Histone 3' UTR stem-loop: a 46-nucleotide RNA sequence from Sakesphorus luctuosus. Pairs were carried over by alignment from the consensus structure, which is taken from published work. Taxonomically the source falls in Sakesphorus (Eukaryota, Bilateria, Neognathae, Australaves).
RNA sequence: CCAAAGGCUCUUUUAAGAGCCACCCACCUACUCUAAAAAGAGCUGG
Numbered sequence: 001c002c003a004a005a006g007g008c009u010c011u012u013u014u015a016a017g018a019g020c021c022a023c024c025c026a027c028c029u030a031c032u033c034u035a036a037a038a039a040g041a042g043c044u045g046g
Stems, first nucleotide, its partner, number of pairs: 006021006